[Rfam]
mir-9/mir-79 microRNA precursor family: an 81-nucleotide RNA from Anopheles stephensi. The family's consensus secondary structure was predicted with RNAalifold. On this family, see Lagos-Quintana et al., Science 2001: "Identification of novel genes coding for small expressed RNAs". Rfam 15.1 lists 5,647 matches to the family in 934 species. It scores 60 bits against the family's covariance model. Gene Ontology terms of the family: RISC complex and miRNA-mediated post-transcriptional gene silencing.
RNA sequence: CCUAUUGGGACUUUGGUGAUUUAGCUGUAUGUUUGAAUGCAAUCUAACCACAUACAGCUUUAUCACCAAAAACCUAAUGUG
Numbered sequence: 001c002c003u004a005u006u007g008g009g010a011c012u013u014u015g016g017u018g019a020u021u022u023a024g025c026u027g028u029a030u031g032u033u034u035g036a037a038u039g040c041a042a043u044c045u046a047a048c049c050a051c052a053u054a055c056a057g058c059u060u061u062a063u064c065a066c067c068a069a070a071a072a073c074c075u076a077a078u079g080u081g
Base pairs, nucleotide, nucleotide: 001081003079004078005077007075008074009073012070013069014068015067016066017065018064019063020062023059024058025057026056028054029053030052031051032050